Rfam assigns this 84-nucleotide RNA sequence from Vanessa tameamea to the family "mir-3338 microRNA precursor family". Its family is annotated with RISC complex and miRNA-mediated post-transcriptional gene silencing in the Gene Ontology. Pairs were carried over by alignment from the consensus structure, which was predicted with RNAalifold. The match comes from Rfam's covariance-model search (95 bits).

RNA sequence: AGGGUGUUUUAAAGCAAACACAGUAGUGUGCAAUGCUAAAGUCAGCCCAUGCAUGUACUUACUUUGUUUGUUCUGGAAUACUCU
Numbered sequence: 001a002g003g004g005u006g007u008u009u010u011a012a013a014g015c016a017a018a019c020a021c022a023g024u025a026g027u028g029u030g031c032a033a034u035g036c037u038a039a040a041g042u043c044a045g046c047c048c049a050u051g052c053a054u055g056u057a058c059u060u061a062c063u064u065u066g067u068u069u070g071u072u073c074u075g076g077a078a079u080a081c082u083c084u
Stems, first nucleotide, its partner, number of pairs: 002083003006079006013072008022063005028058005034053003